[Rfam]
RNA: Betaproteobacteria toxic small RNA
Organism: Aromatoleum aromaticum
RNA sequence: UGUCUCCUCCACCCUCCUCCUUUGGUGUGGAUUUCAGCCCGGGCCCGAAAGUGCUCGGGCUUUUUCUU
Numbered sequence: 001u002g003u004c005u006c007c008u009c010c011a012c013c014c015u016c017c018u019c020c021u022u023u024g025g026u027g028u029g030g031a032u033u034u035c036a037g038c039c040c041g042g043g044c045c046c047g048a049a050a051g052u053g054c055u056c057g058g059g060c061u062u063u064u065u066c067u068u
Base pairs, nucleotide, nucleotide: 008031009030010029011028012027013025014024036061037060038059039058040057041056042055043054